[Rfam]
RNA sequence: ACCGACCUUGCGGUGGGGAGUGACUUGAGCAAUGAAGGCCAACUGAGCUCAAGAUUGCCAACACCAAUUGAUAUAAUUCUAUGCGCUCGUGACCUACUUAGUCGACGAACGCAAUUUUUGAGGCC
Numbered sequence: 001a002c003c004g005a006c007c008u009u010g011c012g013g014u015g016g017g018g019a020g021u022g023a024c025u026u027g028a029g030c031a032a033u034g035a036a037g038g039c040c041a042a043c044u045g046a047g048c049u050c051a052a053g054a055u056u057g058c059c060a061a062c063a064c065c066a067a068u069u070g071a072u073a074u075a076a077u078u079c080u081a082u083g084c085g086c087u088c089g090u091g092a093c094c095u096a097c098u099u100a101g102u103c104g105a106c107g108a109a110c111g112c113a114a115u116u117u118u119u120g121a122g123g124c125c
Stems, first nucleotide, its partner, number of pairs: 006018004020058004024053007036044002083112003087108002094101002
Dot-bracket structure: .....((((.....)))).(((((((((((.....((.....))..))))))).))))........................(((.((.....((....)).....)).))).............
RNA: U4atac minor spliceosomal RNA